Shown here is a 74-nucleotide RNA from Hasllibacter halocynthiae, a member of the family "Singlet oxygen resistance RNA X". Its family is annotated with response to photooxidative stress in the Gene Ontology. Pairs were carried over by alignment from the consensus structure. Rfam describes the family as follows. SorX (RSs2461)like SorY is a singlet oxygen induced sRNA that counteracts oxidative stress by targeting mRNA for a transporter in Rhodobacter. It also has an impact on resistance against organic hydroperoxides. It targets SD sequence of potA mRNA via an aSD sequence. The aSD sequence and some neighbouring nucleotides are identical to the one of SorY (targets takP mRNA). Rfam 15.1 lists 528 matches to the family in 356 species.

[Rfam]
RNA sequence: CCCCUGUCCGCGCCGGGGCAAUGGUGCGGAAACCUCCCUGUUGGACUGGCCCGGGCUCCGGCCCGGGCUUUUUU
Numbered sequence: 001c002c003c004c005u006g007u008c009c010g011c012g013c014c015g016g017g018g019c020a021a022u023g024g025u026g027c028g029g030a031a032a033c034c035u036c037c038c039u040g041u042u043g044g045a046c047u048g049g050c051c052c053g054g055g056c057u058c059c060g061g062c063c064c065g066g067g068c069u070u071u072u073u074u
Stems, first nucleotide, its partner, number of pairs: 008029007049068008